RNA: MIR397 microRNA precursor family
RNA sequence: UGAAUGAACAUCAUUGAGUGCAGCGUUGAUGUAAUUUCGUUUUGUUUUUCAUUGUUGAAUGGAUUAAAAGAAUUUAUACCAGCGUUGCGCUCAAUUAUGUUUUUC
Numbered sequence: 001u002g003a004a005u006g007a008a009c010a011u012c013a014u015u016g017a018g019u020g021c022a023g024c025g026u027u028g029a030u031g032u033a034a035u036u037u038c039g040u041u042u043u044g045u046u047u048u049u050c051a052u053u054g055u056u057g058a059a060u061g062g063a064u065u066a067a068a069a070g071a072a073u074u075u076a077u078a079c080c081a082g083c084g085u086u087g088c089g090c091u092c093a094a095u096u097a098u099g100u101u102u103u104u105c
Stems, first nucleotide, its partner, number of pairs: 006102006013095016030078003